[Rfam]
RNA: L31-Actinobacteria ribosomal protein leader
RNA sequence: UUGGCUCCGGUUCACGUCCGUCCCAGGUCCGGGAGGGCGACCCGGCGGCC
Dot-bracket structure: ..(((.((((....(((((.(((........))))))))..))))..)))
Numbered sequence: 001u002u003g004g005c006u007c008c009g010g011u012u013c014a015c016g017u018c019c020g021u022c023c024c025a026g027g028u029c030c031g032g033g034a035g036g037g038c039g040a041c042c043c044g045g046c047g048g049c050c
Stems, first nucleotide, its partner, number of pairs: 003050003007045004015039005021034003